[Rfam]
RNA: Small Cajal body specific RNA 11
Organism: Pan troglodytes
RNA sequence: UUGUCCUGGCCUAUGCUUUUUCUACUCCCCUCUGCUUUUUUGGUCCCCCUGUGCUCAGUUCUAACAAGGUAGUCUGGCAGGACACACAGCAGUCUCCUUCAGUUUAGGAGGACUGUCUUUAGAAUAGAGCUGUCUCAAGGCACAAGAGUACAAU
Dot-bracket structure: .(((((((.((............(((.((.(.(..............................).).)).)))..))))))))).............((..((((..((((..(((.((......)).)).))))).))))...)..)......
Numbered sequence: 001u002u003g004u005c006c007u008g009g010c011c012u013a014u015g016c017u018u019u020u021u022c023u024a025c026u027c028c029c030c031u032c033u034g035c036u037u038u039u040u041u042g043g044u045c046c047c048c049c050u051g052u053g054c055u056c057a058g059u060u061c062u063a064a065c066a067a068g069g070u071a072g073u074c075u076g077g078c079a080g081g082a083c084a085c086a087c088a089g090c091a092g093u094c095u096c097c098u099u100c101a102g103u104u105u106a107g108g109a110g111g112a113c114u115g116u117c118u119u120u121a122g123a124a125u126a127g128a129g130c131u132g133u134c135u136c137a138a139g140g141c142a143c144a145a146g147a148g149u150a151c152a153a154u
Stems, first nucleotide, its partner, number of pairs: 002084007010077002024073003028069002031066001033064001098148001099145001102141004108136004114132001115130002118127002